This 73-nucleotide RNA sequence from Brassica rapa belongs to the Rfam family "Plastid-ycf2 5UTR RNA".
The family's consensus secondary structure was predicted with LocARNA.
The literature on the family includes a 2023 paper in Plant Commun by Richter et al., "Retrograde signaling in plants: A critical review focusing on the GUN pathway and beyond".

[Rfam]
RNA sequence: GUGCAUCCAGCAGGAAUCGAACCUACUUUCCUCUUUAUUAGGUUGGGCGCUUUAACCAUUCAGCCAUGGAUGC
Numbered sequence: 001g002u003g004c005a006u007c008c009a010g011c012a013g014g015a016a017u018c019g020a021a022c023c024u025a026c027u028u029u030c031c032u033c034u035u036u037a038u039u040a041g042g043u044u045g046g047g048c049g050c051u052u053u054a055a056c057c058a059u060u061c062a063g064c065c066a067u068g069g070a071u072g073c
Base pairs, nucleotide, nucleotide: 003073004072005071006070007069008068010026012024013023014022037067038066042064043063044062045061046060047059049057
Dot-bracket structure: ..((((((.(.(((.......))).)..........((...((((((.(.......).)))))).))))))))
Rfam describes the family as follows. Plastid ycf2 is a non-coding RNA (ncRNA) recognised in plastids. It was found in the prime untranslated region (5UTR) of ycf2 genes, it presents a tRNA-like motif which suggests it can be involved in mRNA maturation, particularly involved in defining the precise 5' end of the transcript.